[Rfam]
RNA sequence: GAACUAUCGGCAGGGGAGAUGCCAUAAUCAGGAAGGUGGUUUUCCCAGGGUAAGGCUCAUGCCUUGCACUCUGGGUGUGCUGACCCCUGCGAUUUCCCCAAAUGCGGGAAACUUGACUGCAUAAUUCGUGGUAGUGGGGAACUAUGUUCACACUCUCCUAAU
Numbered sequence: 001g002a003a004c005u006a007u008c009g010g011c012a013g014g015g016g017a018g019a020u021g022c023c024a025u026a027a028u029c030a031g032g033a034a035g036g037u038g039g040u041u042u043u044c045c046c047a048g049g050g051u052a053a054g055g056c057u058c059a060u061g062c063c064u065u066g067c068a069c070u071c072u073g074g075g076u077g078u079g080c081u082g083a084c085c086c087c088u089g090c091g092a093u094u095u096c097c098c099c100a101a102a103u104g105c106g107g108g109a110a111a112c113u114u115g116a117c118u119g120c121a122u123a124a125u126u127c128g129u130g131g132u133a134g135u136g137g138g139g140a141a142c143u144a145u146g147u148u149c150a151c152a153c154u155c156u157c158c159u160a161a162u
Stems, first nucleotide, its partner, number of pairs: 010120004014046006021040005047088004054081003058077003062073001090115003093111003097107002135161001137159003141156001145152002
This 162-nucleotide RNA sequence from Struthio camelus belongs to the Rfam family "U1 spliceosomal RNA".
A reference for the family is Zwieb (1997), "The uRNA database", Nucleic Acids Res.
The match comes from Rfam's covariance-model search (108 bits).
Rfam classes the family as a spliceosomal small nuclear RNA.
The family has 100 seed sequences and 40,184 matches in Rfam 15.1.
The organism belongs to Struthio camelus, within Eukaryota.